[Rfam]
This 79-nucleotide RNA from Carlito syrichta belongs to the Rfam family "Small nucleolar RNA SNORD115".
RNA sequence: GGGUCAAUGAUGAAAUCUUUGCAUUGUCUCUAGAGAGGUGUUGUGUUAAAUCUUGCACAACAGACUUACACUGAAGUCC
Numbered sequence: 001g002g003g004u005c006a007a008u009g010a011u012g013a014a015a016u017c018u019u020u021g022c023a024u025u026g027u028c029u030c031u032a033g034a035g036a037g038g039u040g041u042u043g044u045g046u047u048a049a050a051u052c053u054u055g056c057a058c059a060a061c062a063g064a065c066u067u068a069c070a071c072u073g074a075a076g077u078c079c
Base pairs, nucleotide, nucleotide: 001079002078003077004076005073006072008070009069
The family's RNA type in Rfam is C/D-box small nucleolar RNA. The family's consensus secondary structure was predicted with PFOLD. The family has 32 seed sequences and 3,387 matches in Rfam 15.1. The organism belongs to Carlito, within Eukaryota. For this family Rfam cites "Identification of brain-specific and imprinted small nucleolar RNA genes exhibiting an unusual genomic organization" (Cavaille et al., Proc Natl Acad Sci U S A, 2000).